Rfam assigns this 134-nucleotide RNA sequence from Nonomuraea sp. C10 to the family "c-di-AMP riboswitch aptamer (ydaO/yuaA leader)". It scores 94 bits against the family's covariance model. The pairing is the family consensus, mapped onto this sequence.
RNA sequence: AGCGCACGGCCGCCGAAUCCGUUCGCGGAGCCGGGGACCCAUUCCCCUUGGGGUGAAUCGGCGCACCACGCGCCGUAGGGCACUUCCACGCCCGAACCCGUCAGCUAACCCGGUAGGCGGCAUGGAAGCUAGGA
Dot-bracket structure: ..........((((...(((......)))((((((....((.......))(((.....((((.........))))..((((........))))...))).........)))))).))))...............